[Rfam]
R2 RNA element: a 197-nucleotide RNA sequence from Agrilus planipennis. Rfam's curators write: This family represents the 3' UTR region of the R2 retrotransposable element.

RNA sequence: AUUUUGCUUAAAAAUUAAAUAUCUACUGCUACAGCCUUCACGUCCGGCUGAAGAGGACCUCAAUUAAUAGGUCCUAUAACGGCCUGAGGUAGAGGGGUUUUAGUCGGUAGGCCCGAGGAGACCUUCCUCGGGAAUCCGACACUACCAGCCAUAUGGAUGGCUGGGUGUCUUUUGAAGAUUUCCCCUCUUCCACGAAA
Numbered sequence: 001a002u003u004u005u006g007c008u009u010a011a012a013a014a015u016u017a018a019a020u021a022u023c024u025a026c027u028g029c030u031a032c033a034g035c036c037u038u039c040a041c042g043u044c045c046g047g048c049u050g051a052a053g054a055g056g057a058c059c060u061c062a063a064u065u066a067a068u069a070g071g072u073c074c075u076a077u078a079a080c081g082g083c084c085u086g087a088g089g090u091a092g093a094g095g096g097g098u099u100u101u102a103g104u105c106g107g108u109a110g111g112c113c114c115g116a117g118g119a120g121a122c123c124u125u126c127c128u129c130g131g132g133a134a135u136c137c138g139a140c141a142c143u144a145c146c147a148g149c150c151a152u153a154u155g156g157a158u159g160g161c162u163g164g165g166u167g168u169c170u171u172u173u174g175a176a177g178a179u180u181u182c183c184c185c186u187c188u189u190c191c192a193c194g195a196a197a
Base pairs, nucleotide, nucleotide: 040060042058043057044056045055064196065195068192088191089190091188092187094184095183096182103140104139105138106137107136112132113131114130115129116128117127118126119125120124142167145164146163147162

The base pairs follow the family's consensus structure, which is taken from published work.
Rfam 15.1 lists 3,698 matches to the family in 74 species.
It scores 53 bits against the family's covariance model.
A reference for the family is Luan et al. (1993), "Reverse transcription of R2Bm RNA is primed by a nick at the chromosomal target site: a mechanism for non-LTR retrotransposition", Cell.